RNA sequence: UUGGAGGACUUGCAGACUUCAACUUGGAGGCUUGAUGGAUUUGAAGAUUUCAACUUGAAGACUUGGAGGAAUUAAGCACUUCAACU
Numbered sequence: 001u002u003g004g005a006g007g008a009c010u011u012g013c014a015g016a017c018u019u020c021a022a023c024u025u026g027g028a029g030g031c032u033u034g035a036u037g038g039a040u041u042u043g044a045a046g047a048u049u050u051c052a053a054c055u056u057g058a059a060g061a062c063u064u065g066g067a068g069g070a071a072u073u074a075a076g077c078a079c080u081u082c083a084a085c086u
Base pairs, nucleotide, nucleotide: 001084002083003082004081005080006079009076010075011074012073017068018067019066020065021064025059028056032053033052034051035050037048
A member of the RNA family "MIR8024 microRNA precursor family" from Nicotiana tabacum, 86 nucleotides long.
The family has 2 seed sequences and 661 matches in Rfam 15.1.
A search with the family's covariance model found it, with a score of 64 bits.